[Rfam]
RNA sequence: GGGUGCGGGAAGUGAUUUCCCGCAGGAGCAUCGGACGGUCGGGCCGCCGUUCG
Number, nucleotide and partner (000 for none) at each position: 001g000002g000003g000004u000005g023006c022007g021008g020009g019010a018011a017012g000013u000014g000015a000016u000017u011018u010019c009020c008021c007022g006023c005024a000025g000026g000027a000028g000029c000030a000031u000032c053033g052034g051035a050036c000037g048038g047039u046040c000041g000042g000043g000044c000045c000046g039047c038048c037049g000050u035051u034052c033053g032
RNA: nhaA-I RNA